Ribosomal S15 leader: a 120-nucleotide sequence from Thalassomonas sp. M1454. About the family: The E. coli Ribosomal S15 gene 5' UTR can form two alternative structures. One that is a series of three hairpins, The other includes a pseudoknot. This structure causes translational regulation of the S15 protein. The alignment of this family contains only the final two hairpins which are conserved in other species, and also includes the complete region that forms the alternate structures. Rfam classes the family as a cis-regulatory leader. On this family, see Benard et al., Biochimie 1996: "Pseudoknot and translational control in the expression of the S15 ribosomal protein". The family is grouped with related families in Rfam's "Ribosomal Protein S15 Leader clan".
RNA sequence: UCGUCUUGCUGAAUUAGUGUUUGGCUUGACGGGAUUUUAAACUAAAACACUAAGGUAUAUAUUAUGUCUUUAAACGCUACAGAAAAAGCUGCAAUCGUUGCAGAAUACGCUCAAUCUGAA
Numbered sequence: 001u002c003g004u005c006u007u008g009c010u011g012a013a014u015u016a017g018u019g020u021u022u023g024g025c026u027u028g029a030c031g032g033g034a035u036u037u038u039a040a041a042c043u044a045a046a047a048c049a050c051u052a053a054g055g056u057a058u059a060u061a062u063u064a065u066g067u068c069u070u071u072a073a074a075c076g077c078u079a080c081a082g083a084a085a086a087a088g089c090u091g092c093a094a095u096c097g098u099u100g101c102a103g104a105a106u107a108c109g110c111u112c113a114a115u116c117u118g119a120a
Stems, first nucleotide, its partner, number of pairs: 008025005051072005